[Rfam]
The record is a 130-nucleotide RNA sequence from Clostridium carboxidivorans, which matches "c-di-AMP riboswitch aptamer (ydaO/yuaA leader)" in Rfam. The base pairs follow the family's consensus structure. This family represents a conserved RNA structure found upstream of the ydaO and yuaA genes in Bacillus subtilis and related genes in other bacteria.
RNA sequence: UACUACCAUUAGCCUAAGUUUUUUAUUAAACACGGGGAAACCGGAAUUUUUUGGGGUGAAUCGUAUUUUACGUAGGUUAUGCCUUUACCGAACCCGACAGCUAACCCCGUAGGUAACAAGGAGAGGAUUU
Dot-bracket structure: ...........(((...(((........)))((((((....((........))(((.....((((...))))..(((.........)))...))).........)))))).)))................